[Rfam]
RNA sequence: UUACCUUUAUCGCUCAAUCCUUUUGGAGCGGGGGACCCGUUAUUGUGUGGUGGCUAUUGCCUUCACUUGGGGUGAAUUCUUCUUAUUAGAAAGGGCUACUUCAUGCCCUAACCCGACAGCUAACCUCGUAAGCGUAAUGGAGAGGCAGA
Numbered sequence: 001u002u003a004c005c006u007u008u009a010u011c012g013c014u015c016a017a018u019c020c021u022u023u024u025g026g027a028g029c030g031g032g033g034g035a036c037c038c039g040u041u042a043u044u045g046u047g048u049g050g051u052g053g054c055u056a057u058u059g060c061c062u063u064c065a066c067u068u069g070g071g072g073u074g075a076a077u078u079c080u081u082c083u084u085a086u087u088a089g090a091a092a093g094g095g096c097u098a099c100u101u102c103a104u105g106c107c108c109u110a111a112c113c114c115g116a117c118a119g120c121u122a123a124c125c126u127c128g129u130a131a132g133c134g135u136a137a138u139g140g141a142g143a144g145g146c147a148g149a
Base pairs, nucleotide, nucleotide: 011134012133013132014131018027019026020025028129029128030127031126032125033124038069039068070114071113072112078090079089080088093108094107095106096105